[Rfam]
RNA sequence: UAUAAGUUACAGGGGAACUAAUGUAGUUGAGAAGGAUUAAAAACCUGACCCUUAGAACCUGUCAGCUAAUACUGUCGCAGGAAGUUAAAACACAAAUUUG
Numbered sequence: 001u002a003u004a005a006g007u008u009a010c011a012g013g014g015g016a017a018c019u020a021a022u023g024u025a026g027u028u029g030a031g032a033a034g035g036a037u038u039a040a041a042a043a044c045c046u047g048a049c050c051c052u053u054a055g056a057a058c059c060u061g062u063c064a065g066c067u068a069a070u071a072c073u074g075u076c077g078c079a080g081g082a083a084g085u086u087a088a089a090a091c092a093c094a095a096a097u098u099u100g
Base pairs, nucleotide, nucleotide: 007087009085010084011052012051013050014049016046017027018026019025020024034045035044037042058081059080060079061078063074064073065072
The family of this 100-nucleotide RNA sequence from Clostridium luticellarii is "TPP riboswitch aptamer (THI element)". Gene Ontology term of the family: thiamine pyrophosphate binding.